[Rfam]
RNA sequence: GCUGAGCCCGGUAGCGUGGGCUUGUAACCCUAGUGGGAGCUGUGAGGUGAUGGGAUGUGGACUCAGCUCGGAAGGCUGGGUUCGGAUGAGCUUAUUCUGGCCAGCCCGUUUCAAGCCCAGAGUUGAUCCAUGGUAUCCUAGUGAAGACUUGGGUGUCUUGGUUCCUAGAGCGGAGGGCAUAGCGUGAGGCUGGUUUCACAGAGCAGCGAUCACCUCCUUCUCUUGGCAGUGAAAAGAUAACUGGUCGGUGCUGUCCGAAUCCAUAUGGGCCUAAUGGGUUGGUCUAAUUGGACCAUUACUUUU
Number, nucleotide and partner (000 for none) at each position: 001g040002c039003u038004g023005a022006g021007c020008c019009c018010g017011g000012u000013a000014g000015c000016g000017u010018g009019g008020g007021c006022u005023u004024g000025u000026a000027a000028c037029c036030c035031u000032a000033g000034u000035g030036g029037g028038a003039g002040c001041u000042g000043u000044g302045a301046g300047g299048u298049g297050a296051u295052g294053g293054g000055a000056u290057g289058u287059g000060g285061a283062c282063u281064c000065a279066g000067c000068u277069c276070g275071g000072a000073a272074g271075g270076c269077u268078g262079g261080g260081u259082u258083c257084g256085g255086a254087u000088g000089a252090g251091c000092u250093u000094a000095u000096u000097c248098u247099g246100g245101c244102c243103a242104g241105c000106c236107c000108g000109u234110u233111u232112c231113a230114a000115g227116c226117c225118c000119a223120g222121a221122g220123u000124u000125g164126a163127u000128c161129c160130a159131u000132g157133g156134u155135a154136u153137c152138c151139u000140a149141g148142u147143g000144a000145a000146g000147a142148c141149u140150u000151g138152g137153g136154u135155g134156u133157c132158u000159u130160g129161g128162u000163u126164c125165c170166u000167a000168g000169a000170g165171c000172g217173g216174a215175g214176g213177g000178c000179a000180u000181a210182g000183c208184g207185u206186g000187a000188g000189g000190c201191u200192g199193g000194u000195u000196u000197c000198a000199c192200a191201g190202a000203g000204c000205a000206g185207c184208g183209a000210u181211c000212a000213c176214c175215u174216c173217c172218u000219u000220c122221u121222c120223u119224u000225g117226g116227c115228a000229g000230u113231g112232a111233a110234a109235a000236g106237a000238u000239a000240a000241c104242u103243g102244g101245u100246c099247g098248g097249u000250g092251c090252u089253g000254u086255c085256c084257g083258a082259a081260u080261c079262c078263a000264u000265a000266u000267g000268g077269g076270c075271c074272u073273a000274a000275u070276g069277g068278g000279u065280u000281g063282g062283u061284c000285u060286a000287a058288u000289u057290g056291g000292a000293c053294c052295a051296u050297u049298a048299c047300u046301u045302u044303u000

Description: Rfam assigns this 303-nucleotide RNA from Populus tomentosa to the family "Plant signal recognition particle RNA". The family is grouped with related families in Rfam's "SRP clan". The match comes from Rfam's covariance-model search (230 bits). By type it is a non-coding RNA gene. Lineage of the source: Eukaryota > Streptophytina > Spermatophyta > eudicotyledons > Populus.